Rfam assigns this 48-nucleotide RNA sequence to the family "ssnA RNA". It is annotated as a cis-regulatory element. The base pairs follow the family's consensus structure, which is taken from published work. It is one of the family's seed sequences.
RNA sequence: ACAAUAUAAGCUGUAAAGAAGUGCUUCGCGCACGGGCCGGUGUUCAUU
Numbered sequence: 001a002c003a004a005u006a007u008a009a010g011c012u013g014u015a016a017a018g019a020a021g022u023g024c025u026u027c028g029c030g031c032a033c034g035g036g037c038c039g040g041u042g043u044u045c046a047u048u
Base pairs, nucleotide, nucleotide: 010037011036012035021033022032023031024030